[Rfam]
The record is a 77-nucleotide sequence from Jaculus jaculus, which matches "mir-3473 microRNA precursor family" in Rfam. Rfam 15.1 lists 1,094 matches to the family in 20 species.
RNA sequence: ACCGCUAAGCCAUCUCUCCAGCCCUGGUUACUACUUUUAAAAGUUUAUAUCAGGGGCUGGAGAGAUGGCUUAGCGGU
Numbered sequence: 001a002c003c004g005c006u007a008a009g010c011c012a013u014c015u016c017u018c019c020a021g022c023c024c025u026g027g028u029u030a031c032u033a034c035u036u037u038u039a040a041a042a043g044u045u046u047a048u049a050u051c052a053g054g055g056g057c058u059g060g061a062g063a064g065a066u067g068g069c070u071u072a073g074c075g076g077u
Stems, first nucleotide, its partner, number of pairs: 002076023